[Rfam]
RNA: Small nucleolar RNA SNORA12
Organism: Nannospalax galili
RNA sequence: UGUUGUGGUAGCUUCUUUCUGGUGCAUUUGUUAAGUUUUCAAAUGAGCCUGAUUCUGCCACAUACAUUAUGUAGGAGCUGGCAGAGGCUUAAAGACGAAGUGGUUUCUCUUGAGCUUGUCCUCAGAUUGGCUCCCAUAUGU
Numbered sequence: 001u002g003u004u005g006u007g008g009u010a011g012c013u014u015c016u017u018u019c020u021g022g023u024g025c026a027u028u029u030g031u032u033a034a035g036u037u038u039u040c041a042a043a044u045g046a047g048c049c050u051g052a053u054u055c056u057g058c059c060a061c062a063u064a065c066a067u068u069a070u071g072u073a074g075g076a077g078c079u080g081g082c083a084g085a086g087g088c089u090u091a092a093a094g095a096c097g098a099a100g101u102g103g104u105u106u107c108u109c110u111u112g113a114g115c116u117u118g119u120c121c122u123c124a125g126a127u128u129g130g131c132u133c134c135c136a137u138a139u140g141u
Stems, first nucleotide, its partner, number of pairs: 005061007021049003025045006074134006080089003106126003